Notes:
This 73-nucleotide RNA from Cimex lectularius belongs to the Rfam family "tRNA". From the family's description: Transfer RNA (tRNA) molecules are approximately 80 nucleotides in length. Pairs were carried over by alignment from the consensus structure, which is taken from published work. Rfam classes the family as a transfer RNA.
RNA sequence: GUCACGAUAGCUCAAGUGGUAGAGCAGCGGCGUAUUUAGCCGAAGGUCGUGGGUUCGAAUCCCGCUCUUGACG
Number, nucleotide and partner (000 for none) at each position: 001g072002u071003c070004a069005c000006g067007a066008u000009a000010g025011c024012u023013c022014a000015a000016g000017u000018g000019g000020u000021a000022g013023a012024g011025c010026a000027g000028c042029g041030g040031c039032g000033u000034a000035u000036u000037u000038a000039g031040c030041c029042g028043a000044a000045g000046g000047u000048c000049g065050u064051g063052g062053g061054u000055u000056c000057g000058a000059a000060u000061c053062c052063c051064g050065c049066u007067c006068u000069u004070g003071a002072c001073g000